[Rfam]
RNA sequence: GAAUCAUUCUCGCUGAGUCUCCAGUUUUGGAGAGCGGGGGAACCAUUACAAGGCGAAGGGCCGAUAUGAGGCGAACCGCUAGUAUUUGAUUUCUUUCCAAGGGUCUUAGGGGUGAAUUUAACGGUGAGCGCCAUGAGCGUUCAGCCAGAGAUAGGGCGGCUCUCUUUCGCCCAAACCCGACAGCUAACCUCGCAAGCGUAUGAAGAGAGGCAAU
Numbered sequence: 001g002a003a004u005c006a007u008u009c010u011c012g013c014u015g016a017g018u019c020u021c022c023a024g025u026u027u028u029g030g031a032g033a034g035c036g037g038g039g040g041a042a043c044c045a046u047u048a049c050a051a052g053g054c055g056a057a058g059g060g061c062c063g064a065u066a067u068g069a070g071g072c073g074a075a076c077c078g079c080u081a082g083u084a085u086u087u088g089a090u091u092u093c094u095u096u097c098c099a100a101g102g103g104u105c106u107u108a109g110g111g112g113u114g115a116a117u118u119u120a121a122c123g124g125u126g127a128g129c130g131c132c133a134u135g136a137g138c139g140u141u142c143a144g145c146c147a148g149a150g151a152u153a154g155g156g157c158g159g160c161u162c163u164c165u166u167u168c169g170c171c172c173a174a175a176c177c178c179g180a181c182a183g184c185u186a187a188c189c190u191c192g193c194a195a196g197c198g199u200a201u202g203a204a205g206a207g208a209g210g211c212a213a214u
Stems, first nucleotide, its partner, number of pairs: 011198004018033006034193006044109001110178003118151002154172004